Rfam assigns this 151-nucleotide RNA sequence from Sporosarcina pasteurii to the family "FMN riboswitch aptamer (RFN element)". NCBI's taxonomy places the organism under Bacteria, Bacillota, Bacilli, Caryophanales, Sporosarcina. The match comes from Rfam's covariance-model search (111 bits). Gene Ontology term of the family: FMN binding. The family has 146 seed sequences and 6,230 matches in Rfam 15.1.

RNA sequence: AAAUAACUUCGGGGCAAGGUGAAAUUCCUUACCGACGGUGAUCGAGCGUAAUGCUUGUUAGUCCGUGACCCGCUUUUCUACUUGCUAGAAAACGGUGGAGCUGGUGAAACUCCGGCACCGACAGUUAAAGUCUGGAUGGGAGAAGUUUUGU
Numbered sequence: 001a002a003a004u005a006a007c008u009u010c011g012g013g014g015c016a017a018g019g020u021g022a023a024a025u026u027c028c029u030u031a032c033c034g035a036c037g038g039u040g041a042u043c044g045a046g047c048g049u050a051a052u053g054c055u056u057g058u059u060a061g062u063c064c065g066u067g068a069c070c071c072g073c074u075u076u077u078c079u080a081c082u083u084g085c086u087a088g089a090a091a092a093c094g095g096u097g098g099a100g101c102u103g104g105u106g107a108a109a110c111u112c113c114g115g116c117a118c119c120g121a122c123a124g125u126u127a128a129a130g131u132c133u134g135g136a137u138g139g140g141a142g143a144a145g146u147u148u149u150g151u
Base pairs, nucleotide, nucleotide: 003149005147006146007145008144009143010142017029018028019027031131032130033120034119035066036065037064038063061118062117070095071094100116101115102114103113104112122134123133124132